[Rfam]
Nucleotides: 581
Stems, first nucleotide, its partner, number of pairs: 006576001007541002011512002013509007020501002022157002030092003033046003052086007061074003097106003107126007128154009161192001162190005172179002202209002212497001213240005223231002245493003252290012297436003302430005341419001343417006350411004355404003361377001363376004380384001386398003442466008473488005528535002551562004
Number, partner (000 for none) and nucleotide at each position: 001000u002000g003000g004000a005000u006576g007541c008540c009000u010000u011512g012511g013509c014508a015507u016506c017505g018504a019503g020501a021500g022157c023156c024000g025000a026000u027000g028000a029000a030092g031091g032090a033046c034045g035044u036000g037000g038000g039000a040000g041000g042000c043000u044035g045034c046033g047000a048000u049000a050000u051000g052086c053085c054084u055083c056082g057081g058080g059000g060000a061074g062073c063072u064000g065000u066000c067000a068000a069000c070000c071000g072063a073062g074061c075000g076000u077000g078000g079000a080058u081057c082056c083055g084054a085053g086052g087000a088000u089000u090032u091031c092030c093000g094000a095000a096000u097106g098105g099104g100000g101000a102000a103000a104099c105098c106097c107126a108125g109124c110123a111122c112121g113120a114000g115000u116000g117000a118000u119000g120113u121112c122111g123110u124109g125108u126107u127000a128154c129153c130152c131151g132150u133149a134148u135147c136146u137000g138000a139000a140000u141000a142000u143000a144000u145000a146136g147135g148134g149133u150132g151131c152130g153129g154128g155000a156023g157022g158000g159000a160000a161192c162190g163189c164188g165187g166186g167000g168000a169000a170000g171000u172179g173178a174000a175000a176000c177000a178173u179172c180000u181000c182000a183000g184000u185000a186166c187165c188164c189163g190162u191000a192161g193000g194000a195000g196000a197000a198000g199000a200000a201000a202209a203208c204000a205000a206000u207000u208203g209202u210000g211000a212497u213240u214239c215238c216237g217236u218000a219000a220000g221000u222000a223231g224230u225000g226000g227000c228000g229000a230224g231223c232000g233000a234000a235000c236217g237216c238215g239214g240213a241000g242000g243000a244000u245493g246492g247491c248000u249000a250000a251000a252290c253289c254288g255287c256286a257285c258284g259283c260282a261281u262280g263279g264000g265000u266000a267000a268000c269000c270000g271000g272000g273000u274000a275000g276000g277000g278000g279263u280262u281261g282260u283259g284258u285257g286256u287255g288254c289253g290252g291000g292000g293000u294000u295000g296000u297436g298435g299434g300000a301000g302430u303429g304428a305427u306426a307000c308000g309000u310000c311000u312000c313000a314000g315000c316000u317000c318000u319000a320000c321000c322000c323000g324000g325000c326000u327000g328000a329000g330000g331000g332000g333000c334000a335000g336000u337000c338000a339000g340000a341419a342000a343417g344416u345415g346414u347413c348412g349000u350411g351410g352409u353408u354000a355404g356403c357402g358000g359000a360000a361377g362000u363376g364375g365374c366373c367000u368000g369000g370000g371000a372000u373366g374365g375364u376363c377361u378000g379000c380384c381000g382000u383000a384380g385000a386398c387397g388396g389000u390000g391000a392000g393000a394000g395000c396388c397387c398386g399000g400000u401000a402357c403356g404355c405000g406000a407000a408353a409352a410351c411350c412348c413347g414346g415345c416344a417343c418000c419341u420000g421000c422000c423000u424000a425000g426306u427305a428304u429303c430302a431000a432000u433000u434299c435298c436297c437000g438000a439000g440000u441000a442466g443465c444464a445463g446462c447461g448460g449459g450000c451000c452000c453000g454000u455000g456000g457000a458000a459449u460448c461447u462446g463445c464444u465443g466442u467000g468000a469000a470000u471000c472000u473488g474487c475486c476485g477484g478000g479000a480000c481000c482000a483000c484477c485476c486475g487474g488473u489000a490000a491247g492246c493245c494000u495000a496000a497212a498000u499000a500021c501020u502000u503019c504018u505017c506016g507015a508014u509013g510000a511012c512011c513000g514000a515000u516000a517000g518000c519000g520000g521000a522000u523000u524000a525000g526000u527000a528535c529534c530000g531000u532000g533000a534529g535528g536000g537000a538000a539000u540008g541007g542000u543000g544000a545000a546000a547000a548000g549000u550000a551562c552561c553560c554559c555000g556000g557000g558000a559554g560553g561552g562551g563000a564000g565000u566000g567000a568000a569000a570000g571000a572000g573000u574000a575000c576006c577000u578000g579000a580000a581000a